The record is a 61-nucleotide RNA, which matches "Transposase-1 RNA" in Rfam. It is one of the family's seed sequences. Pairs were carried over by alignment from the consensus structure, which is taken from published work. It is annotated as a small RNA.

RNA sequence: CGUUCGGAGAUUACCUCUAUCAUUAUCUACACUGCGUAUGUAAUGGGUAUGUAAUUGUUGA
Numbered sequence: 001c002g003u004u005c006g007g008a009g010a011u012u013a014c015c016u017c018u019a020u021c022a023u024u025a026u027c028u029a030c031a032c033u034g035c036g037u038a039u040g041u042a043a044u045g046g047g048u049a050u051g052u053a054a055u056u057g058u059u060g061a
Stems, first nucleotide, its partner, number of pairs: 009056006020046004027040001029037001
Dot-bracket structure: ........((((((.....((((...(.(.......)..)..))))....)))))).....